[Rfam]
Record summary:
Rfam assigns this 119-nucleotide RNA from Arabis nemorensis to the family "mir-166 microRNA precursor family". This family represents the plant microRNA (miRNA) precursor mir-166. For this family Rfam cites "microRNAs: tiny regulators with great potential" (Ambros, Cell, 2001). Its family is annotated with RISC complex and miRNA-mediated post-transcriptional gene silencing in the Gene Ontology.
RNA sequence: GUUGAGAGGAAUGUUGUCUGGCUCGAGGUCAUGAAGAAAAAGAUCAUUCGAUAAAUUUAAUUUUAAAGAAUGAAAAAAAACCCUAAAUGAUUCUCGGACCAGGCUUCAUUCCCCCCAAC
Numbered sequence: 001g002u003u004g005a006g007a008g009g010a011a012u013g014u015u016g017u018c019u020g021g022c023u024c025g026a027g028g029u030c031a032u033g034a035a036g037a038a039a040a041a042g043a044u045c046a047u048u049c050g051a052u053a054a055a056u057u058u059a060a061u062u063u064u065a066a067a068g069a070a071u072g073a074a075a076a077a078a079a080a081c082c083c084u085a086a087a088u089g090a091u092u093c094u095c096g097g098a099c100c101a102g103g104c105u106u107c108a109u110u111c112c113c114c115c116c117a118a119c
Stems, first nucleotide, its partner, number of pairs: 001119004006114001008112006016104006024096005